[Rfam]
RNA sequence: CCAUAGCCCCGAUAGGAACGGCAUCCUUUUUUGCUUUCUGGUACAAUCUUUCUUUUGAUGACAAACCUUCUGAAAGCAAAAAAGAUAUAGUGGAUAGCGGGAAAUAGC
Number, nucleotide and partner (000 for none) at each position: 001c000002c000003a000004u000005a000006g000007c000008c000009c100010c099011g098012a000013u096014a095015g000016g000017a000018a091019c090020g000021g000022c000023a086024u085025c084026c000027u000028u000029u081030u080031u079032u078033g077034c076035u075036u074037u073038c072039u000040g000041g000042u000043a000044c000045a000046a000047u000048c000049u000050u000051u000052c000053u000054u000055u000056u000057g000058a000059u000060g000061a000062c000063a000064a000065a000066c000067c000068u000069u000070c000071u000072g038073a037074a036075a035076g034077c033078a032079a031080a030081a029082a000083a000084g025085a024086u023087a000088u000089a000090g019091u018092g000093g000094a000095u014096a013097g000098c011099g010100g009101g000102a000103a000104a000105u000106a000107g000108c000

Rfam assigns this 108-nucleotide sequence from Chryseobacterium sp. FH1 to the family "Flavo-1 RNA".